Shown here is a 52-nucleotide sequence, a member of the family "L31-Gammaproteobacteria ribosomal protein leader". The sequence is in the family's curated seed alignment. It is annotated as a cis-regulatory leader.

RNA sequence: CGUAUGGUGUUUGGCUUCGGGCCAGAUAGCGAUACGGCCUCAUAUUGAAGGU
Numbered sequence: 001c002g003u004a005u006g007g008u009g010u011u012u013g014g015c016u017u018c019g020g021g022c023c024a025g026a027u028a029g030c031g032a033u034a035c036g037g038c039c040u041c042a043u044a045u046u047g048a049a050g051g052u
Stems, first nucleotide, its partner, number of pairs: 001036005007030002011025006